[Rfam]
RNA sequence: UGUGAGCUUUGAUGUGAAAGGUUGCGACACACCCGGAAGCAUUGCCAUGGGGUGCGGCGGUAAUUUUCGCGGAGCUAGUCUUAUUUUUAAAAUGGACGAAGGAGGGAA
Numbered sequence: 001u002g003u004g005a006g007c008u009u010u011g012a013u014g015u016g017a018a019a020g021g022u023u024g025c026g027a028c029a030c031a032c033c034c035g036g037a038a039g040c041a042u043u044g045c046c047a048u049g050g051g052g053u054g055c056g057g058c059g060g061u062a063a064u065u066u067u068c069g070c071g072g073a074g075c076u077a078g079u080c081u082u083a084u085u086u087u088u089a090a091a092a093u094g095g096a097c098g099a100a101g102g103a104g105g106g107a108a
Base pairs, nucleotide, nucleotide: 014070015069016068018067019066020065021064025059026058028056079107080106081105082104085103086102087101088100

A member of the RNA family "S10-Clostridia ribosomal protein leader" from Liquorilactobacillus vini, 108 nucleotides long. The organism belongs to Liquorilactobacillus vini, within Bacteria.